[Rfam]
RNA sequence: AGCUUUGUGUAAUGGCAUUGUCAUCGCCAGUGAGGUUUAUCCAAGAUGUGGUUAUUGCUAAUUGUAAACUUUUCCCAGUAACCUUCUGGGAUAACUUGAAAUAUAGCUGUAUUGGCAAUUUUUGACAGUCUCUGUGGAGA
Number, nucleotide and partner (000 for none) at each position: 001a000002g000003c000004u000005u000006u000007g000008u000009g000010u000011a000012a000013u000014g000015g000016c000017a000018u000019u000020g052021u051022c050023a049024u048025c000026g047027c000028c045029a000030g000031u000032g000033a000034g042035g041036u000037u000038u000039a000040u000041c035042c034043a000044a000045g028046a000047u026048g024049u023050g022051g021052u020053u000054a000055u000056u000057g000058c000059u000060a000061a000062u000063u000064g000065u000066a000067a000068a000069c000070u000071u000072u000073u000074c000075c000076c000077a000078g000079u000080a000081a000082c000083c000084u000085u115086c114087u000088g000089g112090g000091a110092u109093a108094a000095c106096u105097u000098g000099a000100a000101a000102u000103a000104u000105a096106g095107c000108u093109g092110u091111a000112u089113u000114g086115g085116c000117a000118a000119u000120u000121u000122u000123u000124g000125a000126c000127a000128g000129u140130c139131u138132c137133u000134g000135u000136g000137g132138a131139g130140a129

A member of the RNA family "U4 spliceosomal RNA" from Catagonus wagneri, 140 nucleotides long. The match comes from Rfam's covariance-model search (81 bits). The family has 177 seed sequences and 32,178 matches in Rfam 15.1. Lineage of the source: Eukaryota > Eumetazoa > Euteleostomi > Theria > Catagonus.